[Rfam]
RNA sequence: GGGAAACAUUUAUGAGCUGAGAUGUUUACCUGAUACAAUCUUCCAACAGCAAAACUCUGAAUUUCCUGCUUGCAAAACUAGAGCUGGUCAUGCAAGUCUCAUAAUAUCAGAGACAGAG
Numbered sequence: 001g002g003g004a005a006a007c008a009u010u011u012a013u014g015a016g017c018u019g020a021g022a023u024g025u026u027u028a029c030c031u032g033a034u035a036c037a038a039u040c041u042u043c044c045a046a047c048a049g050c051a052a053a054a055c056u057c058u059g060a061a062u063u064u065c066c067u068g069c070u071u072g073c074a075a076a077a078c079u080a081g082a083g084c085u086g087g088u089c090a091u092g093c094a095a096g097u098c099u100c101a102u103a104a105u106a107u108c109a110g111a112g113a114c115a116g117a118g
Stems, first nucleotide, its partner, number of pairs: 001031003005027001006025006056111003068097007077088003